The record is a 103-nucleotide RNA from Clostridium acidisoli, which matches "SAM riboswitch aptamer (S box leader)" in Rfam.

RNA sequence: UACUUAUCUAGAAAGGCAGAGGGAGUGGCCCUAUGAAGCCUUGACAACCAAAACUUAUUGUUUAGUGGUGCCAAUUCCAACAGAUUUUUCUGAGAGAUAAGAC
Numbered sequence: 001u002a003c004u005u006a007u008c009u010a011g012a013a014a015g016g017c018a019g020a021g022g023g024a025g026u027g028g029c030c031c032u033a034u035g036a037a038g039c040c041u042u043g044a045c046a047a048c049c050a051a052a053a054c055u056u057a058u059u060g061u062u063u064a065g066u067g068g069u070g071c072c073a074a075u076u077c078c079a080a081c082a083g084a085u086u087u088u089u090c091u092g093a094g095a096g097a098u099a100a101g102a103c
Stems, first nucleotide, its partner, number of pairs: 003101006013042005021031003026079003043072001045070002048068002051063003076095001081092004
The family's consensus secondary structure is taken from published work.